[Rfam]
This 68-nucleotide RNA belongs to the Rfam family "tRNA". Gene Ontology term of the family: triplet codon-amino acid adaptor activity. Rfam's curators put it in the seed alignment.
RNA sequence: GAGAUAUUAGUAAAAUAAUUACAUAACCUUGUCAAGGUUAAGUUAUAGACUUAAAUCUAUAUAUCUUA
Numbered sequence: 001g002a003g004a005u006a007u008u009a010g011u012a013a014a015a016u017a018a019u020u021a022c023a024u025a026a027c028c029u030u031g032u033c034a035a036g037g038u039u040a041a042g043u044u045a046u047a048g049a050c051u052u053a054a055a056u057c058u059a060u061a062u063a064u065c066u067u068a
Stems, first nucleotide, its partner, number of pairs: 001067007010022004024040005045060005